Rfam assigns this 91-nucleotide RNA from Euroglyphus maynei to the family "mir-252 microRNA precursor family". The literature on the family includes a 2009 paper in BMC Genomics by Li et al., "Direct sequencing and expression analysis of a large number of miRNAs in Aedes aegypti and a multi-species survey of novel mosquito miRNAs". It scores 50 bits against the family's covariance model. The family has 44 seed sequences and 422 matches in Rfam 15.1.
RNA sequence: UUGGUCUUCUAAGUAGUAGUGCCGCAGGUGAUUGAAUUUGAUGAGAAAUAAAAACGGUAAUUUACCUGCGCACGACUACUUCAUAGACCGA
Numbered sequence: 001u002u003g004g005u006c007u008u009c010u011a012a013g014u015a016g017u018a019g020u021g022c023c024g025c026a027g028g029u030g031a032u033u034g035a036a037u038u039u040g041a042u043g044a045g046a047a048a049u050a051a052a053a054a055c056g057g058u059a060a061u062u063u064a065c066c067u068g069c070g071c072a073c074g075a076c077u078a079c080u081u082c083a084u085a086g087a088c089c090g091a
Base pairs, nucleotide, nucleotide: 001091002090003089004088005087006086007085011081012080013079014078015077016076017075019073024069025068026067027066028065029064030063
The family is grouped with related families in Rfam's "mir-252 microRNA precursor family". Rfam links the family to the GO terms miRNA-mediated post-transcriptional gene silencing and RISC complex.